[Rfam]
RNA sequence: CGACCUCAGAUCAGGCAAGACUACCCGCUGAAUUUAAGCAUAUAACUAAGCGGAGGAAAAGAAACUAACCAGGAUUCCCCCAGUAGCGGCGAGCGAAGCGGGAAGAGCUCAAUGUGGAAAUCCGGGGCGGGCGCCGCCCCCGAGAUGUAAUCUAUAGAGGCGCUUUCUGGGCCGGCGCGGGUACAAGUCCCCUUGAACGGGGCGUCAUAGAGGGUGCGAACCCCGUACAUGACCCGCGGCGCGGCGCUGUACGAGGCGGUCUCGGCGAGUCGGGUUGCUUGAGAAUGCAGCCCCAAGUGGGUGGUAGACUCCAUCUAAAGCUAAAUACUGGCGGGAGACCGAUAGCGAACAAGUACUGUGAAGGAAAGAUGAAAAGCACUUUGAAAAGAGAGUGAAAGAGGACCUGAAACCGUUGAGGGGGAAGCGAAGGGCGCGAGUGGUGUGCGCGGCCGAUUAGCGCCCCCCGGGGCGCGCACUGGGCCGGGCGGCCGGCGCGGGGAGCAUUUAGUUUGCAGAGAGGCCUGGGCGGCGGCGAGCACACGCCGCCGCGCGGGCGCCCGCGCCGAAAUGGCGCUCUCCGACCCGUCUUGAAACACGG
Numbered sequence: 001c002g003a004c005c006u007c008a009g010a011u012c013a014g015g016c017a018a019g020a021c022u023a024c025c026c027g028c029u030g031a032a033u034u035u036a037a038g039c040a041u042a043u044a045a046c047u048a049a050g051c052g053g054a055g056g057a058a059a060a061g062a063a064a065c066u067a068a069c070c071a072g073g074a075u076u077c078c079c080c081c082a083g084u085a086g087c088g089g090c091g092a093g094c095g096a097a098g099c100g101g102g103a104a105g106a107g108c109u110c111a112a113u114g115u116g117g118a119a120a121u122c123c124g125g126g127g128c129g130g131g132c133g134c135c136g137c138c139c140c141c142g143a144g145a146u147g148u149a150a151u152c153u154a155u156a157g158a159g160g161c162g163c164u165u166u167c168u169g170g171g172c173c174g175g176c177g178c179g180g181g182u183a184c185a186a187g188u189c190c191c192c193u194u195g196a197a198c199g200g201g202g203c204g205u206c207a208u209a210g211a212g213g214g215u216g217c218g219a220a221c222c223c224c225g226u227a228c229a230u231g232a233c234c235c236g237c238g239g240c241g242c243g244g245c246g247c248u249g250u251a252c253g254a255g256g257c258g259g260u261c262u263c264g265g266c267g268a269g270u271c272g273g274g275u276u277g278c279u280u281g282a283g284a285a286u287g288c289a290g291c292c293c294c295a296a297g298u299g300g301g302u303g304g305u306a307g308a309c310u311c312c313a314u315c316u317a318a319a320g321c322u323a324a325a326u327a328c329u330g331g332c333g334g335g336a337g338a339c340c341g342a343u344a345g346c347g348a349a350c351a352a353g354u355a356c357u358g359u360g361a362a363g364g365a366a367a368g369a370u371g372a373a374a375a376g377c378a379c380u381u382u383g384a385a386a387a388g389a390g391a392g393u394g395a396a397a398g399a400g401g402a403c404c405u406g407a408a409a410c411c412g413u414u415g416a417g418g419g420g421g422a423a424g425c426g427a428a429g430g431g432c433g434c435g436a437g438u439g440g441u442g443u444g445c446g447c448g449g450c451c452g453a454u455u456a457g458c459g460c461c462c463c464c465c466g467g468g469g470c471g472c473g474c475a476c477u478g479g480g481c482c483g484g485g486c487g488g489c490c491g492g493c494g495c496g497g498g499g500a501g502c503a504u505u506u507a508g509u510u511u512g513c514a515g516a517g518a519g520g521c522c523u524g525g526g527c528g529g530c531g532g533c534g535a536g537c538a539c540a541c542g543c544c545g546c547c548g549c550g551c552g553g554g555c556g557c558c559c560g561c562g563c564c565g566a567a568a569u570g571g572c573g574c575u576c577u578c579c580g581a582c583c584c585g586u587c588u589u590g591a592a593a594c595a596c597g598g
Stems, first nucleotide, its partner, number of pairs: 024055001025053005035042002065072002076103004086094002106322004115149002118146001121143002124140004157263002159260001161258002164256004169247001171245004177237006187203001189202004206210001213223002272293007299316005356363002379390004425580002428577007436569001441487001444486002447483004491564007583598004
Shown here is a 598-nucleotide part of an RNA from Porphyridium purpureum, a member of the family "Eukaryotic large subunit ribosomal RNA". The match comes from Rfam's covariance-model search (3114 bits). Its Rfam clan is "LSU clan".